Shown here is a 174-nucleotide RNA from Terrabacter sp. MAHUQ-38, a member of the family "c-di-AMP riboswitch aptamer (ydaO/yuaA leader)". Lineage of the source: Bacteria > Actinomycetes > Micrococcales > Intrasporangiaceae > Terrabacter.

RNA sequence: UCACACCGUGGGCCGGGCGAGGACGGGGGAACCAGUGUGGCCAGUGAGUGCAUGUGUGUUCGAGCGCAUGGCAAGAGGACGAGAUCUGGCCUUGGGGUGAAGUCGCGCACGCGACGGGGCACCUGACGCCCUAACCCGACAGCUAACCCCGGAGGCGCGCGUCAGGAAGGACUC
Numbered sequence: 001u002c003a004c005a006c007c008g009u010g011g012g013c014c015g016g017g018c019g020a021g022g023a024c025g026g027g028g029g030a031a032c033c034a035g036u037g038u039g040g041c042c043a044g045u046g047a048g049u050g051c052a053u054g055u056g057u058g059u060u061c062g063a064g065c066g067c068a069u070g071g072c073a074a075g076a077g078g079a080c081g082a083g084a085u086c087u088g089g090c091c092u093u094g095g096g097g098u099g100a101a102g103u104c105g106c107g108c109a110c111g112c113g114a115c116g117g118g119g120c121a122c123c124u125g126a127c128g129c130c131c132u133a134a135c136c137c138g139a140c141a142g143c144u145a146a147c148c149c150c151g152g153a154g155g156c157g158c159g160c161g162u163c164a165g166g167a168a169g170g171a172c173u174c
Stems, first nucleotide, its partner, number of pairs: 001020001024151005033094002095137003103114004117131004